The family of this 57-nucleotide sequence from Hymenochirus boettgeri is "U7 small nuclear RNA". Pairs were carried over by alignment from the consensus structure, which was predicted with PFOLD.
RNA sequence: AAGUGUUUACAGUUCUUUGCUAUUUGUCUAGCAGGUUCUCACUGAGUGGGAGCCACU
Numbered sequence: 001a002a003g004u005g006u007u008u009a010c011a012g013u014u015c016u017u018u019g020c021u022a023u024u025u026g027u028c029u030a031g032c033a034g035g036u037u038c039u040c041a042c043u044g045a046g047u048g049g050g051a052g053c054c055a056c057u
Stems, first nucleotide, its partner, number of pairs: 034054009